This 276-nucleotide RNA from Sciurus carolinensis belongs to the Rfam family "Mason-Pfizer monkey virus packaging signal". Pairs were carried over by alignment from the consensus structure, which was predicted with PFOLD. Rfam classes the family as a cis-regulatory element. Rfam 15.1 lists 2,921 matches to the family in 53 species. For this family Rfam cites "Mutational analysis of the predicted secondary RNA structure of the Mason-Pfizer monkey virus packaging signal" (Mustafa et al., Virus Res, 2004). This family represents a group of sequences that are related to the Mason-Pfizer monkey virus (MPMV) packaging signal. Lineage of the source: Eukaryota > Vertebrata > Dipnotetrapodomorpha > Eutheria > Sciurus.
RNA sequence: UGACGCCCAACGUGGGGCGUGGACACAGGGGAAAUCACGAGGGAAGAGGUGUUUGAUAGUUCAGCCGAACACAGCAGAAGUCAGUUCAACAAAGAUCGCCGCGUGAACCUGCAGCGUCGCUCUUAAAAGGUACAGUAAUGCCUAAUUAUGGGACAAGAUUUAAGUAAGCAUAAAAUUUUUGUUAAACAAUUGAAAGAAGCCUUAAAGAUAUGGGGAGUAAGGGUUAAAAGUAAUGAGCUUUUUAAGUUUUUGACCUUAUCAAGGACACCUGCCCAU
Numbered sequence: 001u002g003a004c005g006c007c008c009a010a011c012g013u014g015g016g017g018c019g020u021g022g023a024c025a026c027a028g029g030g031g032a033a034a035u036c037a038c039g040a041g042g043g044a045a046g047a048g049g050u051g052u053u054u055g056a057u058a059g060u061u062c063a064g065c066c067g068a069a070c071a072c073a074g075c076a077g078a079a080g081u082c083a084g085u086u087c088a089a090c091a092a093a094g095a096u097c098g099c100c101g102c103g104u105g106a107a108c109c110u111g112c113a114g115c116g117u118c119g120c121u122c123u124u125a126a127a128a129g130g131u132a133c134a135g136u137a138a139u140g141c142c143u144a145a146u147u148a149u150g151g152g153a154c155a156a157g158a159u160u161u162a163a164g165u166a167a168g169c170a171u172a173a174a175a176u177u178u179u180u181g182u183u184a185a186a187c188a189a190u191u192g193a194a195a196g197a198a199g200c201c202u203u204a205a206a207g208a209u210a211u212g213g214g215g216a217g218u219a220a221g222g223g224u225u226a227a228a229a230g231u232a233a234u235g236a237g238c239u240u241u242u243u244a245a246g247u248u249u250u251u252g253a254c255c256u257u258a259u260c261a262a263g264g265a266c267a268c269c270u271g272c273c274c275a276u
Base pairs, nucleotide, nucleotide: 006031007030008029012026013025014024036048038046085126086125095121097119100116101115102114136156139153141152142151143150144149161204162203163202164200165199211252212251213250215249216248217247218246221239222238224236225235226234261276263274264273266271